[Rfam]
RNA sequence: CCUGCCGAAGUUUCCCUCAGGAUAGCAGUGUUGAAUUCAGUUUUAUGAGGUAAAGCGAAUGAUUAGAGGCCUUGGGGUUGAAACAACCUUAACCUAUUCUCAAACUUUAAAUAUGUAAGAAGUCCUUGUUACUUAAUUGAACGUGGACAUUCGAAUGUACCAACACUAGUGGGCCAUUUUUGGUAAGCAGAACUGGCGAUGCGGGAUGAACCGAACGUGAAGUUAAGGUGCCGGAAUAUACGCUCAUCAGACACCACAAAAGGUGUUAGUUCAUCUAGACAGCAGGACGGUGGCCAUGGAAGUCGGAAUCCGCUAAGGAAUGUGUAACAACUCACCUGCCGAAUGAACUAGCCCUGAAAAUGGAUGGCGCUUAAGCGUAUUACCCAUACUUCACCGCCAGGGUAGAAACGAUGCCCUGGCGAGUAGGCAGGCGUGGGGGUCAGUGACGAAGCCUUAGCAGUGAUGCUGGGUAGAACGGCCCCUAGUGCAGAU
Numbered sequence: 001c002c003u004g005c006c007g008a009a010g011u012u013u014c015c016c017u018c019a020g021g022a023u024a025g026c027a028g029u030g031u032u033g034a035a036u037u038c039a040g041u042u043u044u045a046u047g048a049g050g051u052a053a054a055g056c057g058a059a060u061g062a063u064u065a066g067a068g069g070c071c072u073u074g075g076g077g078u079u080g081a082a083a084c085a086a087c088c089u090u091a092a093c094c095u096a097u098u099c100u101c102a103a104a105c106u107u108u109a110a111a112u113a114u115g116u117a118a119g120a121a122g123u124c125c126u127u128g129u130u131a132c133u134u135a136a137u138u139g140a141a142c143g144u145g146g147a148c149a150u151u152c153g154a155a156u157g158u159a160c161c162a163a164c165a166c167u168a169g170u171g172g173g174c175c176a177u178u179u180u181u182g183g184u185a186a187g188c189a190g191a192a193c194u195g196g197c198g199a200u201g202c203g204g205g206a207u208g209a210a211c212c213g214a215a216c217g218u219g220a221a222g223u224u225a226a227g228g229u230g231c232c233g234g235a236a237u238a239u240a241c242g243c244u245c246a247u248c249a250g251a252c253a254c255c256a257c258a259a260a261a262g263g264u265g266u267u268a269g270u271u272c273a274u275c276u277a278g279a280c281a282g283c284a285g286g287a288c289g290g291u292g293g294c295c296a297u298g299g300a301a302g303u304c305g306g307a308a309u310c311c312g313c314u315a316a317g318g319a320a321u322g323u324g325u326a327a328c329a330a331c332u333c334a335c336c337u338g339c340c341g342a343a344u345g346a347a348c349u350a351g352c353c354c355u356g357a358a359a360a361u362g363g364a365u366g367g368c369g370c371u372u373a374a375g376c377g378u379a380u381u382a383c384c385c386a387u388a389c390u391u392c393a394c395c396g397c398c399a400g401g402g403u404a405g406a407a408a409c410g411a412u413g414c415c416c417u418g419g420c421g422a423g424u425a426g427g428c429a430g431g432c433g434u435g436g437g438g439g440u441c442a443g444u445g446a447c448g449a450a451g452c453c454u455u456a457g458c459a460g461u462g463a464u465g466c467u468g469g470g471u472a473g474a475a476c477g478g479c480c481c482c483u484a485g486u487g488c489a490g491a492u
Stems, first nucleotide, its partner, number of pairs: 001431006011024001013022003027167007041120007053108001054106002060102003065097001067095003072092006079085001122148004127143004173197004178192005202213003217394005223388001227384003236381001238380001241377003261355003265352010282339005288312003294306002313317001318333001322331002395421009432487001434484008443476002451471002457466003
A member of the RNA family "Eukaryotic large subunit ribosomal RNA" from Lachnellula suecica, 492 nucleotides of a longer RNA. Rfam links the family to the GO terms structural constituent of ribosome and ribosome. The source organism's lineage runs through Eukaryota, leotiomyceta, Helotiales, Lachnaceae and Lachnellula. It scores 3195 bits against the family's covariance model.